[Rfam]
RNA: Mu-gpT-DE RNA
RNA sequence: CCCUGACAGCUAACUUUCUGUAGCUGACAUUAGCCACGACAGGAGAUUCAAAUG
Numbered sequence: 001c002c003c004u005g006a007c008a009g010c011u012a013a014c015u016u017u018c019u020g021u022a023g024c025u026g027a028c029a030u031u032a033g034c035c036a037c038g039a040c041a042g043g044a045g046a047u048u049c050a051a052a053u054g
Base pairs, nucleotide, nucleotide: 002043003042004041005040007026008025009024010023011022